[Rfam]
RNA sequence: AUAACAAUUUGGCAAACUAACUCAAAGGCUAAAAUGCAAAACCACAGGUCUAAGGUUUUUACUAAAAACUAGGUAGCAGAGUUACCUAA
Numbered sequence: 001a002u003a004a005c006a007a008u009u010u011g012g013c014a015a016a017c018u019a020a021c022u023c024a025a026a027g028g029c030u031a032a033a034a035u036g037c038a039a040a041a042c043c044a045c046a047g048g049u050c051u052a053a054g055g056u057u058u059u060u061a062c063u064a065a066a067a068a069c070u071a072g073g074u075a076g077c078a079g080a081g082u083u084a085c086c087u088a089a
Base pairs, nucleotide, nucleotide: 012037013036018031019030021028022027040083041082042081045079047077048074049073050072055069056068057067058066059065060064

Notes:
The family of this 89-nucleotide RNA sequence from Pseudoalteromonas sp. NBT06-2 is "c-di-GMP-I riboswitch aptamer". It scores 45 bits against the family's covariance model. The source organism's lineage runs through Bacteria, Pseudomonadota, Gammaproteobacteria, Pseudoalteromonadaceae and Pseudoalteromonas.